[Rfam]
RNA: Plastid-psbA-3 3UTR RNA
Organism: Asclepias nivea
Nucleotides: 057
Base pairs, nucleotide, nucleotide: 001053002052003051004050005049006048007047008046009045010044012042014040019036020035021034022033023032024031
Number, partner (000 for none) and nucleotide at each position: 001053a002052a003051a004050g005049g006048a007047g008046c009045a010044a011000a012042a013000a014040u015000c016000a017000u018000c019036u020035u021034c022033u023032u024031g025000a026000u027000a028000c029000a030000a031024c032023a033022a034021g035020a036019a037000g038000g039000u040014g041000a042012u043000a044010u045009u046008g047007c048006u049005c050004c051003u052002u053001u054000a055000u056000u057000u